[Rfam]
RNA sequence: ACAACGGCUGUGAUAAAGAGGGUCGGAGUAAGGCUUUUCAGAGAGUCGGCGGCUGGUGAAAGCCGACAGCUGAGUUCCAAGCACCUAUGGCUUUUGAGCCGAAGCCCUGAAAUAACAGUAGGGUCUUCCGUGUUUCUGCGUUAAAGAAUCGAGUGGUAUUCCGAUAAGGAUUACAAGUUGAGUGGUACCGCGGGUUUUCUCGUCUCAAAG
Numbered sequence: 001a002c003a004a005c006g007g008c009u010g011u012g013a014u015a016a017a018g019a020g021g022g023u024c025g026g027a028g029u030a031a032g033g034c035u036u037u038u039c040a041g042a043g044a045g046u047c048g049g050c051g052g053c054u055g056g057u058g059a060a061a062g063c064c065g066a067c068a069g070c071u072g073a074g075u076u077c078c079a080a081g082c083a084c085c086u087a088u089g090g091c092u093u094u095u096g097a098g099c100c101g102a103a104g105c106c107c108u109g110a111a112a113u114a115a116c117a118g119u120a121g122g123g124u125c126u127u128c129c130g131u132g133u134u135u136c137u138g139c140g141u142u143a144a145a146g147a148a149u150c151g152a153g154u155g156g157u158a159u160u161c162c163g164a165u166a167a168g169g170a171u172u173a174c175a176a177g178u179u180g181a182g183u184g185g186u187a188c189c190g191c192g193g194g195u196u197u198u199c200u201c202g203u204c205u206c207a208a209a210g
Stems, first nucleotide, its partner, number of pairs: 007099002015094004023080001025078004035069002045067006102127003106123003129140003156174003160170003179207004190203005

Shown here is a 210-nucleotide RNA sequence from Ruminococcus sp. CAG:563, a member of the family "T-box leader".
Taxonomically the source falls in Ruminococcus (Bacteria, Bacillati, Bacillota, Oscillospiraceae).
The family's RNA type in Rfam is cis-regulatory leader.
Pairs were carried over by alignment from the consensus structure, which is taken from published work.